[Rfam]
RNA sequence: ACAGCACCAAAGCCGCGAGGCUCACUGCACACAGGAUCGCACCCAGCAUCCUCUCUCGUGAGCGGGCUAAGGUCUGAACAUUCCAGUCCCCCUCGAUCGACUCUCGCAGGGUCCGGCGUCAAUCGCGCUGAGCAGCCCACCAGAAAUACCGCUCGCAGUUUCAUCGGUCCUAAGAUCCUUCUCAUUAGAGGGGAGGACGAGACUGUGCGGCGUUGGGAUUUGCUGCGGGGACCGGGCAUAUGUCUUGCUGGGGCUGCACAACCUAUCACUGGAACCUGUGCCGCCAAGGCGCCGGGCUUGAACACGGGCUGCAGCUGGAAUGUUCCAGUCCACCGGGCCUCACUCAGCGAGUGAGUCUACGAGAAGAGUCCUUUCUCUGAGACCAGCACGAGGGCUUGAGAUGUGCAUCCCGGUAUAGGGCAUCUGUCCUUUAGUUCACUUCGCGGCUCGCAGGGUCUUUGGCCAGGGCCCAGCGAAACCCGAUUCAGACUACUCUGGUCCUGU
Numbered sequence: 001a002c003a004g005c006a007c008c009a010a011a012g013c014c015g016c017g018a019g020g021c022u023c024a025c026u027g028c029a030c031a032c033a034g035g036a037u038c039g040c041a042c043c044c045a046g047c048a049u050c051c052u053c054u055c056u057c058g059u060g061a062g063c064g065g066g067c068u069a070a071g072g073u074c075u076g077a078a079c080a081u082u083c084c085a086g087u088c089c090c091c092c093u094c095g096a097u098c099g100a101c102u103c104u105c106g107c108a109g110g111g112u113c114c115g116g117c118g119u120c121a122a123u124c125g126c127g128c129u130g131a132g133c134a135g136c137c138c139a140c141c142a143g144a145a146a147u148a149c150c151g152c153u154c155g156c157a158g159u160u161u162c163a164u165c166g167g168u169c170c171u172a173a174g175a176u177c178c179u180u181c182u183c184a185u186u187a188g189a190g191g192g193g194a195g196g197a198c199g200a201g202a203c204u205g206u207g208c209g210g211c212g213u214u215g216g217g218a219u220u221u222g223c224u225g226c227g228g229g230g231a232c233c234g235g236g237c238a239u240a241u242g243u244c245u246u247g248c249u250g251g252g253g254c255u256g257c258a259c260a261a262c263c264u265a266u267c268a269c270u271g272g273a274a275c276c277u278g279u280g281c282c283g284c285c286a287a288g289g290c291g292c293c294g295g296g297c298u299u300g301a302a303c304a305c306g307g308g309c310u311g312c313a314g315c316u317g318g319a320a321u322g323u324u325c326c327a328g329u330c331c332a333c334c335g336g337g338c339c340u341c342a343c344u345c346a347g348c349g350a351g352u353g354a355g356u357c358u359a360c361g362a363g364a365a366g367a368g369u370c371c372u373u374u375c376u377c378u379g380a381g382a383c384c385a386g387c388a389c390g391a392g393g394g395c396u397u398g399a400g401a402u403g404u405g406c407a408u409c410c411c412g413g414u415a416u417a418g419g420g421c422a423u424c425u426g427u428c429c430u431u432u433a434g435u436u437c438a439c440u441u442c443g444c445g446g447c448u449c450g451c452a453g454g455g456u457c458u459u460u461g462g463c464c465a466g467g468g469c470c471c472a473g474c475g476a477a478a479c480c481c482g483a484u485u486c487a488g489a490c491u492a493c494u495c496u497g498g499u500c501c502u503g504u
Stems, first nucleotide, its partner, number of pairs: 001504004007498003012447007020063005034051004039047002074488005099113005114130006132226005150212003448476004453471007
Dot-bracket structure: ((((..(((..(((((((.(((((.........((((.((.....)))))).......)))))..........[[[[[....................(((((.....)))))((((((.....)))))).(((((.............(((.........................................................))).........)))))......................................................................................................................................................................................................................)))))))((((.(((((((.....))))))).)))).......]]]]].......)))..))))
Shown here is a 504-nucleotide RNA from Athelia sp. TMB, a member of the family "Nuclear RNase P". Its Rfam clan is "RNaseP clan". For this family Rfam cites "Ribonuclease P: unity and diversity in a tRNA processing ribozyme" (Frank and Pace, Annu Rev Biochem, 1998). Taxonomically the source falls in Athelia (Eukaryota, Dikarya, Basidiomycota, Atheliaceae). From the family's description: Ribonuclease P (RNase P) is a ubiquitous endoribonuclease, found in archaea, bacteria and eukarya as well as chloroplasts and mitochondria.